[Rfam]
RNA sequence: GAACCGCUACAACGGCUUCCUGGCGUGGCGGGGAUAUUCAUAACGGAGCA
Numbered sequence: 001g002a003a004c005c006g007c008u009a010c011a012a013c014g015g016c017u018u019c020c021u022g023g024c025g026u027g028g029c030g031g032g033g034a035u036a037u038u039c040a041u042a043a044c045g046g047a048g049c050a
Base pairs, nucleotide, nucleotide: 004032005031006029007028008027009026010025013022014021015049016048017047019046020045
Dot-bracket structure: ...(((((((..(([[[.[[))..))))).))............]]]]].
The family of this 50-nucleotide sequence from Rhodovulum adriaticum is "SAM/SAH riboswitch aptamer". Its family is annotated with S-adenosylmethionine metabolic process and regulation of gene expression in the Gene Ontology. For this family Rfam cites "The structure of the SAM/SAH-binding riboswitch" (Weickhmann et al., Nucleic Acids Res, 2019). It scores 56 bits against the family's covariance model. Lineage of the source: Bacteria > Pseudomonadati > Alphaproteobacteria > Paracoccaceae > Rhodovulum.